[Rfam]
This 359-nucleotide part of an RNA from Halomicrobium mukohataei belongs to the Rfam family "Archaeal large subunit ribosomal RNA". The sequence is in the family's curated seed alignment. The family's consensus secondary structure is taken from published work.

Nucleotides: 359
Base pairs, nucleotide, nucleotide: 001326002325003324004323010321011320012319013318014317015316016315017314019312020311021310036060037059038058039057040056045050061083062082063081064080065079066078067077068076069075084088096305097304098303099302100301101300102299103297104296107121108120109119124159125158126157127156128155129154130153131152132149136145137144138143162292163291164290165289167222168221169220172219173218174215175214176213177212178211181210182209183208189202190201191200192199223241224240225239226238227237228236242246262278263277264276265275266274267273340357341356342355343354344353
Number, partner (000 for none) and nucleotide at each position: 001326c002325g003324g004323g005000a006000a007000c008000a009000a010321c011320c012319g013318a014317c015316g016315u017314u018000a019312g020311g021310g022000a023000a024000u025000u026000c027000g028000g029000c030000a031000a032000g033000u034000u035000a036060g037059u038058c039057c040056c041000g042000u043000a044000c045050c046000u047000u048000c049000g050045g051000a052000a053000u054000a055000a056040g057039g058038g059037a060036u061083g062082c063081c064080u065079g066078c067077u068076c069075c070000u071000g072000a073000c074000a075069g076068g077067a078066g079065c080064a081063g082062g083061u084088c085000g086000c087000a088084g089000u090000g091000a092000c093000u094000c095000g096305g097304a098303c099302g100301c101300u102299c103297c104296g105000a106000c107121u108120g109119u110000c111000u112000a113000g114000u115000a116000a117000c118000a119109a120108c121107a122000u123000a124159g125158g126157u127156g128155a129154c130153c131152g132149c133000a134000a135000a136145u137144c138143c139000g140000c141000a142000a143138g144137g145136a146000c147000u148000c149132g150000u151000a152131c153130g154129g155128u156127c157126a158125c159124u160000g161000a162292a163291u164290c165289c166000u167222g168221c169220c170000c171000a172219g173218u174215g175214c176213g177212g178211g179000u180000a181210u182209c183208u184000g185000a186000a187000c188000a189202c190201c191200u192199a193000g194000u195000a196000c197000a198000a199192u200191a201190g202189g203000a204000c205000g206000a207000a208183g209182g210181a211178c212177c213176c214175g215174u216000c217000a218173a219172c220169g221168g222167c223241g224240g225239g226238g227237g228236u229000a230000a231000c232000u233000a234000u235000g236228a237227c238226c239225c240224u241223c242246u243000u244000a245000a246242g247000g248000u249000a250000g251000c252000g253000u254000a255000g256000u257000a258000c259000c260000u261000u262278g263277c264276c265275g266274c267273u268000u269000c270000a271000g272000u273267a274266g275265c276264g277263g278262c279000u280000u281000g282000c283000a284000u285000g286000a287000a288000u289165g290164g291163a292162u293000u294000a295000a296104c297103g298000a299102g300101a301100g302099c303098g304097u305096c306000a307000c308000u309000g310021u311020c312019c313000c314017a315016a316015c317014g318013u319012u320011g321010g322000g323004c324003c325002c326001g327000g328000u329000g330000a331000a332000c333000u334000g335000u336000a337000c338000g339000u340357u341356c342355c343354a344353g345000u346000g347000c348000g349000g350000a351000g352000u353344c354343u355342g356341g357340a358000g359000a